[Rfam]
RNA sequence: UGCGUAUUUUGCCCAGGCGGAGCUCGACCGCCGCUGAGUGACGUCGACGCCUUCGUCGACGCCCACCGUGACGAGCACGGGGUCGAGCCGAUCUGCUCCACGUUGGCCGAGGCCGGCUACCAGAUCGCCCCC
Numbered sequence: 001u002g003c004g005u006a007u008u009u010u011g012c013c014c015a016g017g018c019g020g021a022g023c024u025c026g027a028c029c030g031c032c033g034c035u036g037a038g039u040g041a042c043g044u045c046g047a048c049g050c051c052u053u054c055g056u057c058g059a060c061g062c063c064c065a066c067c068g069u070g071a072c073g074a075g076c077a078c079g080g081g082g083u084c085g086a087g088c089c090g091a092u093c094u095g096c097u098c099c100a101c102g103u104u105g106g107c108c109g110a111g112g113c114c115g116g117c118u119a120c121c122a123g124a125u126c127g128c129c130c131c132c
Base pairs, nucleotide, nucleotide: 016032017031018030019029020028079131080130081129082128089127090126092124093123094122095121

Overview
Shown here is a 132-nucleotide sequence from Arsenicicoccus cauae, a member of the family "ALIL pseudoknot". The family's consensus secondary structure is taken from published work. It scores 82 bits against the family's covariance model. The literature on the family includes a 2008 paper in J Biol Chem by Mazauric et al., "Apical loop-internal loop RNA pseudoknots: a new type of stimulator of -1 translational frameshifting in bacteria".